[Rfam]
RNA sequence: CCAGCAGUUUCAAGGCCAUAGCAGAAGUGCCCACAGUGCGGCCAUGGCAGAUUCUAAUGAAUCUGCAAAUUCUGCU
Numbered sequence: 001c002c003a004g005c006a007g008u009u010u011c012a013a014g015g016c017c018a019u020a021g022c023a024g025a026a027g028u029g030c031c032c033a034c035a036g037u038g039c040g041g042c043c044a045u046g047g048c049a050g051a052u053u054c055u056a057a058u059g060a061a062u063c064u065g066c067a068a069a070u071u072c073u074g075c076u
Base pairs, nucleotide, nucleotide: 014043015042016041017040020076021075022074023073024072025071026070027039028038029037048065049064050063051062052061053060054059